A member of the RNA family "Burkholderia RNA 7 (anti-hemB)" from a Betaproteobacteria bacterium, 92 nucleotides long.

RNA sequence: UCUCCCGCUUCUCCUCCCUGAGCGGGCGCCUUAAUCCCAAUUAAGGCAUUUUUGCCCCCGGCUUUGCUCCCCUUUAGCCGGGGGUUCUUAUU
Numbered sequence: 001u002c003u004c005c006c007g008c009u010u011c012u013c014c015u016c017c018c019u020g021a022g023c024g025g026g027c028g029c030c031u032u033a034a035u036c037c038c039a040a041u042u043a044a045g046g047c048a049u050u051u052u053u054g055c056c057c058c059c060g061g062c063u064u065u066g067c068u069c070c071c072c073u074u075u076a077g078c079c080g081g082g083g084g085u086u087c088u089u090a091u092u
Stems, first nucleotide, its partner, number of pairs: 004026006028047007055084008
The family's RNA type in Rfam is small RNA. NCBI's taxonomy places the organism under Bacteria, Pseudomonadati, Pseudomonadota, Betaproteobacteria.